[Rfam]
RNA sequence: AAACUGAAUCUAUGAAGAGCUCGUAUAUAUCCGGGAAUAUGGCCCGGAAGUCUCUACCCGGUAACCGUAAACUGCCGGACUACGAGGAAUAGGGAAGGCUUC
Numbered sequence: 001a002a003a004c005u006g007a008a009u010c011u012a013u014g015a016a017g018a019g020c021u022c023g024u025a026u027a028u029a030u031c032c033g034g035g036a037a038u039a040u041g042g043c044c045c046g047g048a049a050g051u052c053u054c055u056a057c058c059c060g061g062u063a064a065c066c067g068u069a070a071a072c073u074g075c076c077g078g079a080c081u082a083c084g085a086g087g088a089a090u091a092g093g094g095a096a097g098g099c100u101u102c
Base pairs, nucleotide, nucleotide: 020086021085022084023083024082025081030048031047032046033045034044035043058078059077060076061075062074063073
RNA: Purine riboswitch aptamer